[Rfam]
Notes: A member of the RNA family "Burkholderia sRNA Bp1_Cand684_SIPHT" from Paraburkholderia steynii, 114 nucleotides long. NCBI's taxonomy places the organism under Bacteria, Pseudomonadati, Burkholderiales, Burkholderiaceae, Paraburkholderia. The base pairs follow the family's consensus structure, which was predicted with RNAalifold.

RNA sequence: AGAAAAGUAGGUGCCGCCCCGCACAGGGGCGACGCGUGAAGCGAGACGACAAAGCAGGUUCAACGACGAAGCAUGAGCAACCACAAAAAGCUCACACCUCGCCGCGCGACAACC
Number, nucleotide and partner (000 for none) at each position: 001a000002g000003a000004a000005a000006a000007g000008u000009a000010g000011g000012u075013g074014c000015c031016g030017c029018c028019c027020c026021g000022c000023a000024c000025a000026g020027g019028g018029g017030c016031g015032a000033c000034g000035c000036g000037u000038g000039a000040a000041g000042c000043g000044a000045g000046a000047c000048g000049a000050c000051a000052a000053a000054g000055c000056a000057g000058g067059u066060u065061c000062a000063a000064c000065g060066a059067c058068g000069a000070a000071g000072c000073a000074u013075g012076a000077g000078c000079a000080a000081c000082c000083a000084c000085a000086a000087a000088a000089a000090g000091c000092u000093c000094a000095c106096a000097c104098c000099u000100c000101g000102c000103c000104g097105c000106g095107c000108g000109a000110c000111a000112a000113c000114c000

The literature on the family includes a 2012 paper in BMC Genomics by Khoo et al., "Computational discovery and RT-PCR validation of novel Burkholderia conserved and Burkholderia pseudomallei unique sRNAs".